[Rfam]
RNA sequence: UAUAUGUAAAUCUGCCAUUUUCGUAUAACCCCAGAAAUCGGUAUGGGGGUCUCUACAGGGAACCGUAAACCUUAGCUACGAAAAGGCGCUUUCCUUAU
Number, nucleotide and partner (000 for none) at each position: 001u000002a000003u000004a000005u000006g000007u000008a000009a000010a000011u000012c000013u000014g000015c000016c000017a000018u084019u083020u082021u081022c080023g079024u078025a077026u000027a000028a000029c048030c047031c046032c045033a044034g000035a042036a000037a000038u000039c000040g000041g000042u035043a000044u033045g032046g031047g030048g029049g000050u000051c000052u000053c000054u000055a000056c000057a000058g073059g072060g071061a000062a000063c000064c000065g000066u000067a000068a000069a000070c000071c060072u059073u058074a000075g000076c000077u025078a024079c023080g022081a021082a020083a019084a018085g000086g000087c000088g000089c000090u000091u000092u000093c000094c000095u000096u000097a000098u000
RNA: Purine riboswitch aptamer